The family of this 336-nucleotide RNA sequence from Rubrivivax gelatinosus is "Bacterial RNase P class A". A search with the family's covariance model found it, with a score of 202 bits.
[Rfam]
RNA sequence: GAAGCGGACCAGACCGCCGCCGGUGCAUCAGCGGAAACGCCGCACGGGAGGAAGGUCCGGACUGCACAAGGCAGCGUAGCAGCUAACGGCUGUCCACCGCGAGGUGAGGAUUAGAGCAACAGAGACGAGUCCGGGCGGAUGCAAGUCCGCCUGGGGUGAAACGGGCAAUCUCUACGCGCAGCAACACCGAAUAGGCCGGCGAUGAUGUCGCCUGCGGAGCCGGCGGGUAGGUGGCACCGAGCCGUGGAGCGAUCCACGGCCAAGAGGAAUGGCGGUCACGCCGCGCCCUGAAAGGGGUGCGGUGCACAGAAUCCGGCCUAUCGGUUCGCUUCACAC
Numbered sequence: 001g002a003a004g005c006g007g008a009c010c011a012g013a014c015c016g017c018c019g020c021c022g023g024u025g026c027a028u029c030a031g032c033g034g035a036a037a038c039g040c041c042g043c044a045c046g047g048g049a050g051g052a053a054g055g056u057c058c059g060g061a062c063u064g065c066a067c068a069a070g071g072c073a074g075c076g077u078a079g080c081a082g083c084u085a086a087c088g089g090c091u092g093u094c095c096a097c098c099g100c101g102a103g104g105u106g107a108g109g110a111u112u113a114g115a116g117c118a119a120c121a122g123a124g125a126c127g128a129g130u131c132c133g134g135g136c137g138g139a140u141g142c143a144a145g146u147c148c149g150c151c152u153g154g155g156g157u158g159a160a161a162c163g164g165g166c167a168a169u170c171u172c173u174a175c176g177c178g179c180a181g182c183a184a185c186a187c188c189g190a191a192u193a194g195g196c197c198g199g200c201g202a203u204g205a206u207g208u209c210g211c212c213u214g215c216g217g218a219g220c221c222g223g224c225g226g227g228u229a230g231g232u233g234g235c236a237c238c239g240a241g242c243c244g245u246g247g248a249g250c251g252a253u254c255c256a257c258g259g260c261c262a263a264g265a266g267g268a269a270u271g272g273c274g275g276u277c278a279c280g281c282c283g284c285g286c287c288c289u290g291a292a293a294g295g296g297g298u299g300c301g302g303u304g305c306a307c308a309g310a311a312u313c314c315g316g317c318c319u320a321u322c323g324g325u326u327c328g329c330u331u332c333a334c335a336c
Base pairs, nucleotide, nucleotide: 001332002331003330004329005328006327007326008325009324010323011321012277013276014275015274016273017272018271020048021047023045024044025043026042053319054318055317057316058315059314060313061312062181063180064179065178069213070212071211072210074177075176076175077174078173079093080092081091082090083089094108095106096105097104098103109172110171114170115169116166117165131155132154133152134151135150136149137148138147140145185233186232187231188230195224196223197222198221199220200219206216207215208214241260242259243258244257245256246255247254248253